Rfam assigns this 68-nucleotide RNA sequence from Planosporangium flavigriseum to the family "Actino-pnp RNA".
Taxonomically the source falls in Planosporangium (Bacteria, Bacillati, Actinomycetes, Micromonosporaceae).

RNA sequence: ACCGGUCCUCGGUAGUGGCUUUCGGGGGACGAGCUCAACCCACCCGAGAGCUUCGAUCGAAGACCGGC
Numbered sequence: 001a002c003c004g005g006u007c008c009u010c011g012g013u014a015g016u017g018g019c020u021u022u023c024g025g026g027g028g029a030c031g032a033g034c035u036c037a038a039c040c041c042a043c044c045c046g047a048g049a050g051c052u053u054c055g056a057u058c059g060a061a062g063a064c065c066g067g068c
Base pairs, nucleotide, nucleotide: 002067003066004065005064006063007062009060010059011058012057013056017052018051019050020049021048022047023046024045025044026043028041
It scores 67 bits against the family's covariance model.